[Rfam]
RNA: Plastid-psbA-1 3UTR RNA
RNA sequence: UUGAAGUAAAGAAAAAAACUUACGUAAGAAAAACGACUCCUAAAUAAUAAAGGAGCAAUAACAAACUUCUUGAUAGAACAAGAAAUUUUUUAUUGCUCCUUU
Numbered sequence: 001u002u003g004a005a006g007u008a009a010a011g012a013a014a015a016a017a018a019c020u021u022a023c024g025u026a027a028g029a030a031a032a033a034c035g036a037c038u039c040c041u042a043a044a045u046a047a048u049a050a051a052g053g054a055g056c057a058a059u060a061a062c063a064a065a066c067u068u069c070u071u072g073a074u075a076g077a078a079c080a081a082g083a084a085a086u087u088u089u090u091u092a093u094u095g096c097u098c099c100u101u102u
Base pairs, nucleotide, nucleotide: 001010002009049102050101051100052099053098054097055096056095057094058093059092060091061090063088064087065086067084068083069082070081071080